[Rfam]
RNA sequence: UGUAAAAUGAUGAGAAACUUGGAUCUGAAACUGAUGUGGAUAACAAACACAUAAUGGUCUUCAAAGUUCUCUGAUUGCC
Numbered sequence: 001u002g003u004a005a006a007a008u009g010a011u012g013a014g015a016a017a018c019u020u021g022g023a024u025c026u027g028a029a030a031c032u033g034a035u036g037u038g039g040a041u042a043a044c045a046a047a048c049a050c051a052u053a054a055u056g057g058u059c060u061u062c063a064a065a066g067u068u069c070u071c072u073g074a075u076u077g078c079c
Base pairs, nucleotide, nucleotide: 002078003077004076005075
Shown here is a 79-nucleotide sequence from Ananas comosus, a member of the family "Small nucleolar RNA R160". The family's RNA type in Rfam is C/D-box small nucleolar RNA. It scores 61 bits against the family's covariance model.